[Rfam]
RNA: chrB-b RNA
RNA sequence: CCGGGGCACUGCAACCUCCCGGUCAGGCACCAUGCGCCCAAGCGUUGC
Numbered sequence: 001c002c003g004g005g006g007c008a009c010u011g012c013a014a015c016c017u018c019c020c021g022g023u024c025a026g027g028c029a030c031c032a033u034g035c036g037c038c039c040a041a042g043c044g045u046u047g048c
Base pairs, nucleotide, nucleotide: 001022002021003020004019005018006017011048012047013046014045015044026038027037028036030034